[Rfam]
RNA sequence: UUGCCCAUCGGGACCGCGGACACCUGCUUAGAUUUUU
Numbered sequence: 001u002u003g004c005c006c007a008u009c010g011g012g013a014c015c016g017c018g019g020a021c022a023c024c025u026g027c028u029u030a031g032a033u034u035u036u037u
Stems, first nucleotide, its partner, number of pairs: 003014001005012002017026003

The record is a 37-nucleotide sequence, which matches "XIST RNA A repeat" in Rfam. It is one of the family's seed sequences. The base pairs follow the family's consensus structure, which was predicted with CMfinder. Rfam classes the family as a small RNA.